Shown here is a 141-nucleotide RNA sequence from Niallia taxi, a member of the family "Ribosomal protein L20 leader". From the family's description: This family is a putative r-protein leader autoregulatory structure found in B. subtilis and other low-GC Gram-positive bacteria. It is located in the 5' untranslated regions of mRNAs encoding initiation factor 3 followed by ribosomal proteins L35 and L20 (infC-rpmI-rplT).

RNA sequence: GAGGAAAAGAAGAAGCACCCGCUUCUCACCUGAUUGACACGGAUUCCAAGUAGUUAACAGGUAUUACGUAAACAAUUUAGGUCUUACUAUGGUUAUCGUAAGUGUGGGUGAUUUUUGAAUCGUCCACACUUUUUAUUUUGG
Numbered sequence: 001g002a003g004g005a006a007a008a009g010a011a012g013a014a015g016c017a018c019c020c021g022c023u024u025c026u027c028a029c030c031u032g033a034u035u036g037a038c039a040c041g042g043a044u045u046c047c048a049a050g051u052a053g054u055u056a057a058c059a060g061g062u063a064u065u066a067c068g069u070a071a072a073c074a075a076u077u078u079a080g081g082u083c084u085u086a087c088u089a090u091g092g093u094u095a096u097c098g099u100a101a102g103u104g105u106g107g108g109u110g111a112u113u114u115u116u117g118a119a120u121c122g123u124c125c126a127c128a129c130u131u132u133u134u135a136u137u138u139u140g141g
Stems, first nucleotide, its partner, number of pairs: 011026006028062003036055003039051002103128010